[Rfam]
RNA sequence: UUGCUUUAGGGAUGAACGAGUCCCUCACAUUGAUCUUCGUCCAUCUGCUUCACUUUGUCAGCAAGUCGUGUUCUUUCAGCCAGCUGCUGAUCAUUCUAGGAUGGAAAAUCU
Numbered sequence: 001u002u003g004c005u006u007u008a009g010g011g012a013u014g015a016a017c018g019a020g021u022c023c024c025u026c027a028c029a030u031u032g033a034u035c036u037u038c039g040u041c042c043a044u045c046u047g048c049u050u051c052a053c054u055u056u057g058u059c060a061g062c063a064a065g066u067c068g069u070g071u072u073c074u075u076u077c078a079g080c081c082a083g084c085u086g087c088u089g090a091u092c093a094u095u096c097u098a099g100g101a102u103g104g105a106a107a108a109u110c111u
Stems, first nucleotide, its partner, number of pairs: 040105006057091007
RNA: Small nucleolar RNA snoR99
Organism: Eucalyptus grandis